[Rfam]
RNA sequence: AGUAGUAGCAAAUACUUUAAUAAGAACUUAAAGGACUGAAGUAGGGAAAGGUUCUAUAUAAACAGCGGUUAGACAUAGGUUAGUCAAUCCUAAGCUAUAGGGAAGUUCUGUUUUAAAGGGGUACUUAUGCCCUGUAUAGCGAAAGGGAAGCCGGUUAAUAUUCCAGCACCUGGAUGUGGGUUUUGCGUGGCAACGCAACUGAACGCGGAGACGACGGCAGGGGCCUUAGGCAGAGUUCUCUUUUCUUCUUAACAGUCUAUUACCCUGAAAUUAGUUUGUCUAGAGCUAGGGUUUAACGGCUAGAAGAGCCUAGCACUUCUGUUAGGUCUAGUGCGCUCUUGACGUCCCUUAAAAAUCUGCAGGAAGGAAUAAUUCUCACGCUAGGUCGUACUUAUAACUGCAGCAGGUCUCUAAGGUAAACAGCCUCUAGUUAA
Numbered sequence: 001a002g003u004a005g006u007a008g009c010a011a012a013u014a015c016u017u018u019a020a021u022a023a024g025a026a027c028u029u030a031a032a033g034g035a036c037u038g039a040a041g042u043a044g045g046g047a048a049a050g051g052u053u054c055u056a057u058a059u060a061a062a063c064a065g066c067g068g069u070u071a072g073a074c075a076u077a078g079g080u081u082a083g084u085c086a087a088u089c090c091u092a093a094g095c096u097a098u099a100g101g102g103a104a105g106u107u108c109u110g111u112u113u114u115a116a117a118g119g120g121g122u123a124c125u126u127a128u129g130c131c132c133u134g135u136a137u138a139g140c141g142a143a144a145g146g147g148a149a150g151c152c153g154g155u156u157a158a159u160a161u162u163c164c165a166g167c168a169c170c171u172g173g174a175u176g177u178g179g180g181u182u183u184u185g186c187g188u189g190g191c192a193a194c195g196c197a198a199c200u201g202a203a204c205g206c207g208g209a210g211a212c213g214a215c216g217g218c219a220g221g222g223g224c225c226u227u228a229g230g231c232a233g234a235g236u237u238c239u240c241u242u243u244u245c246u247u248c249u250u251a252a253c254a255g256u257c258u259a260u261u262a263c264c265c266u267g268a269a270a271u272u273a274g275u276u277u278g279u280c281u282a283g284a285g286c287u288a289g290g291g292u293u294u295a296a297c298g299g300c301u302a303g304a305a306g307a308g309c310c311u312a313g314c315a316c317u318u319c320u321g322u323u324a325g326g327u328c329u330a331g332u333g334c335g336c337u338c339u340u341g342a343c344g345u346c347c348c349u350u351a352a353a354a355a356u357c358u359g360c361a362g363g364a365a366g367g368a369a370u371a372a373u374u375c376u377c378a379c380g381c382u383a384g385g386u387c388g389u390a391c392u393u394a395u396a397a398c399u400g401c402a403g404c405a406g407g408u409c410u411c412u413a414a415g416g417u418a419a420a421c422a423g424c425c426u427c428u429a430g431u432u433a434a
Stems, first nucleotide, its partner, number of pairs: 015033006034432004043412004049392002054078004059073001064070001085388001087386001089146002094140002097111002100109003119133003150167002153164002170384004175380005180374001187196003205360005213346004218341007226331003229249002232246003254301004262292006271283004309326007398407002414426004
RNA: Eukaryotic large subunit ribosomal RNA, nucleotides 1424 to 1857